radC RNA: a 148-nucleotide RNA from Pseudothauera nasutitermitis. Rfam 15.1 lists 500 matches to the family in 142 species.

RNA sequence: AAUCCGAAAGUUUGUCCGCCGUCCCCGACGGCGACAUGCCCAGGUAGCCCGGGUCUUCAAGGCUACGACGCGGCGCAGCCGCGUUGACCGUCCCGUUCGCAUCGCAUCCUUCGAGGCGAACAGCCAUCGCAUCCGCGAUGGUGGAUGC
Numbered sequence: 001a002a003u004c005c006g007a008a009a010g011u012u013u014g015u016c017c018g019c020c021g022u023c024c025c026c027g028a029c030g031g032c033g034a035c036a037u038g039c040c041c042a043g044g045u046a047g048c049c050c051g052g053g054u055c056u057u058c059a060a061g062g063c064u065a066c067g068a069c070g071c072g073g074c075g076c077a078g079c080c081g082c083g084u085u086g087a088c089c090g091u092c093c094c095g096u097u098c099g100c101a102u103c104g105c106a107u108c109c110u111u112c113g114a115g116g117c118g119a120a121c122a123g124c125c126a127u128c129g130c131a132u133c134c135g136c137g138a139u140g141g142u143g144g145a146u147g148c
Stems, first nucleotide, its partner, number of pairs: 011038001013036002015033001018032006044066006052089004067085007116148003123142008